RNA sequence: AGUCACAAGUUUGAGGCCACAGCACAAGUGGUCAUGGCACAGCCGUGUCGGAUUCCAACGAAUCUGCGAAUUCUGCU
Numbered sequence: 001a002g003u004c005a006c007a008a009g010u011u012u013g014a015g016g017c018c019a020c021a022g023c024a025c026a027a028g029u030g031g032u033c034a035u036g037g038c039a040c041a042g043c044c045g046u047g048u049c050g051g052a053u054u055c056c057a058a059c060g061a062a063u064c065u066g067c068g069a070a071u072u073c074u075g076c077u
Base pairs, nucleotide, nucleotide: 015044016043017042021077022076023075024074026072027071028040029039030038049066050065051064052063053062054061055060
The family of this 77-nucleotide RNA sequence from Alligator mississippiensis is "Mammalian CPEB3 ribozyme". Rfam's curators write: The mammalian CPEB3 ribozyme is a self cleaving RNA located in the second intron of the CPEB3 gene which belongs to a family of genes regulating messenger RNA polyadenylation. Gene Ontology term of the family: RNA nuclease activity.